[Rfam]
RNA sequence: GAGUUUGCGGUGUGUUGCGAGGUUAACCCGUGUGGGGAAGCCGUAGCGAAAGCGAGUCCGAAUAGGGCGAUUCAGUAGCGCGCUCAAGACCCGAAGCGGAGUGAUCUAGCCAUGGGCAGGUUGAAGCGGAGGUAAGACUUCGUGGAGGACCGAACCCACCAGGGUUGAAAACCUGGGGGAUGACCUGUGGUUAGGGGUGAAAGGCCAAUCAAACUCCGUGAUAGCUGGUU
Number, nucleotide and partner (000 for none) at each position: 001g000002a000003g000004u000005u087006u086007g085008c000009g084010g083011u082012g081013u080014g079015u078016u077017g076018c075019g000020a000021g042022g041023u040024u039025a000026a000027c036028c035029c034030g000031u000032g000033u000034g029035g028036g027037g000038a000039a024040g023041c022042c021043g000044u000045a000046g053047c052048g000049a000050a000051a000052g047053c046054g000055a000056g068057u067058c066059c065060g000061a000062a000063u000064a000065g059066g058067g057068c056069g000070a000071u000072u000073c000074a000075g018076u017077a016078g015079c014080g013081c012082g011083c010084u009085c007086a006087a005088g000089a000090c228091c227092c000093g225094a000095a000096g000097c218098g217099g216100a215101g214102u213103g000104a000105u000106c194107u193108a192109g191110c190111c189112a188113u187114g186115g185116g184117c182118a000119g151120g150121u149122u148123g000124a000125a000126g143127c142128g141129g140130a139131g138132g000133u000134a000135a000136g000137a000138c131139u130140u129141c128142g127143u126144g000145g000146a000147g000148g122149a121150c120151c119152g000153a000154a000155c179156c178157c177158a000159c176160c175161a174162g173163g172164g000165u000166u000167g000168a000169a000170a000171a000172c163173c162174u161175g160176g159177g157178g156179g155180a000181u000182g117183a000184c116185c115186u114187g113188u112189g111190g110191u109192u108193a107194g106195g000196g206197g205198u204199g000200a000201a000202a000203g000204g198205c197206c196207a000208a000209u000210c000211a000212a000213a102214c101215u100216c099217c098218g097219u000220g000221a000222u000223a000224g000225c093226u000227g091228g090229u000230u000

A member of the RNA family "Bacterial large subunit ribosomal RNA" from Streptomyces seoulensis, 230 nucleotides of a longer RNA. The literature on the family includes a 2001 paper in Science by Yusupov et al., "Crystal structure of the ribosome at 5.5 A resolution". The family is grouped with related families in Rfam's "LSU clan". The family's consensus secondary structure is taken from published work.